RNA sequence: AUCUUAUCAAGAGUGGUUGAGGGACUGGCCCUGUGAAACCCAGCAGCCUACACAAAAGUGUAAGGUGCUAACCUGUGGCAAGAUAGUGUACUAUCUUGGACGAUAAGAG
Numbered sequence: 001a002u003c004u005u006a007u008c009a010a011g012a013g014u015g016g017u018u019g020a021g022g023g024a025c026u027g028g029c030c031c032u033g034u035g036a037a038a039c040c041c042a043g044c045a046g047c048c049u050a051c052a053c054a055a056a057a058g059u060g061u062a063a064g065g066u067g068c069u070a071a072c073c074u075g076u077g078g079c080a081a082g083a084u085a086g087u088g089u090a091c092u093a094u095c096u097u098g099g100a101c102g103a104u105a106a107g108a109g
Stems, first nucleotide, its partner, number of pairs: 002108007013041001015040003021031003025078003028074001042069004047065002049062004079098006
Record summary
This 109-nucleotide sequence from Brochothrix campestris belongs to the Rfam family "SAM riboswitch aptamer (S box leader)". Rfam 15.1 lists 9,625 matches to the family in 4,158 species. On this family, see Baird et al., RNA 2012: "YbxF and YlxQ are bacterial homologs of L7Ae and bind K-turns but not K-loops". Pairs were carried over by alignment from the consensus structure, which is taken from published work.